[Rfam]
RNA sequence: UUACAGCUGCGACAGAACCACUGAUAGAGCAUAAGUAGUCAGCAGAGGGCAUAGUACUUAUAUUUCCGAUAUCAAAUAUAAGAAAGGCC
Numbered sequence: 001u002u003a004c005a006g007c008u009g010c011g012a013c014a015g016a017a018c019c020a021c022u023g024a025u026a027g028a029g030c031a032u033a034a035g036u037a038g039u040c041a042g043c044a045g046a047g048g049g050c051a052u053a054g055u056a057c058u059u060a061u062a063u064u065u066c067c068g069a070u071a072u073c074a075a076a077u078a079u080a081a082g083a084a085a086g087g088c089c
Base pairs, nucleotide, nucleotide: 001026004023005022006021009018039046040045048089049088050087057082058081059080060079061078062077063076064075
RNA: Group II catalytic intron D1-D4-1